[Rfam]
RNA sequence: GGAAGUGGAUGGGGUCUGGUGGCCCUCCCGGUCUUCAAAACCGACGUGAGCUGAAUAGGCUUUGGCAGGUUCGAUUCCUGCUCCUUCC
Numbered sequence: 001g002g003a004a005g006u007g008g009a010u011g012g013g014g015u016c017u018g019g020u021g022g023c024c025c026u027c028c029c030g031g032u033c034u035u036c037a038a039a040a041c042c043g044a045c046g047u048g049a050g051c052u053g054a055a056u057a058g059g060c061u062u063u064g065g066c067a068g069g070u071u072c073g074a075u076u077c078c079u080g081c082u083c084c085u086u087c088c
Base pairs, nucleotide, nucleotide: 001088002087003086004085005084007082008081011026012025013024014023015022016021029043030042031041032040048062049061050060051059066080067079068078069077
Shown here is an 88-nucleotide sequence from Photobacterium profundum, a member of the family "Selenocysteine transfer RNA". The source organism's lineage runs through Bacteria, Pseudomonadota, Gammaproteobacteria, Vibrionaceae and Photobacterium. Rfam's curators put it in the seed alignment. The family's consensus secondary structure is taken from published work.